Shown here is a 146-nucleotide sequence from Paenactinomyces guangxiensis, a member of the family "Group II catalytic intron D1-D4-7".
Rfam links the family to the GO term Group II intron splicing.
On this family, see Bonen and Vogel, Trends Genet 2001: "The ins and outs of group II introns".
About the family: Group II introns are found in rRNA, tRNA and mRNA of organelles in fungi, plants and protists, and also in mRNA in bacteria.
[Rfam]
RNA sequence: CCUACUGUUCCACCAGUAGUAUCCUAGGCAGAUCGGCGGUAAGGUAACGAACCGUCGAGAGCCUGCCAACAAUGAAUCCCGUAGCUAACGCUACCGUCGAAACCGCGAGGGGACGGCGGUUCUGCCAGCGUCAGGCGGAUAGGGAC
Numbered sequence: 001c002c003u004a005c006u007g008u009u010c011c012a013c014c015a016g017u018a019g020u021a022u023c024c025u026a027g028g029c030a031g032a033u034c035g036g037c038g039g040u041a042a043g044g045u046a047a048c049g050a051a052c053c054g055u056c057g058a059g060a061g062c063c064u065g066c067c068a069a070c071a072a073u074g075a076a077u078c079c080c081g082u083a084g085c086u087a088a089c090g091c092u093a094c095c096g097u098c099g100a101a102a103c104c105g106c107g108a109g110g111g112g113a114c115g116g117c118g119g120u121u122c123u124g125c126c127a128g129c130g131u132c133a134g135g136c137g138g139a140u141a142g143g144g145a146c
Stems, first nucleotide, its partner, number of pairs: 002019006027067005033058008043048001081094005096117004103110002121139006